[Rfam]
RNA sequence: UUAUAUGCACCCUGUAGAAUCGAAUUUGUGUGAAUACUGCACUCACAGAUUCGUCUCUAGGGGGGUAUAUGGG
Numbered sequence: 001u002u003a004u005a006u007g008c009a010c011c012c013u014g015u016a017g018a019a020u021c022g023a024a025u026u027u028g029u030g031u032g033a034a035u036a037c038u039g040c041a042c043u044c045a046c047a048g049a050u051u052c053g054u055c056u057c058u059a060g061g062g063g064g065g066u067a068u069a070u071g072g073g
Stems, first nucleotide, its partner, number of pairs: 002071006010063003016058003021053010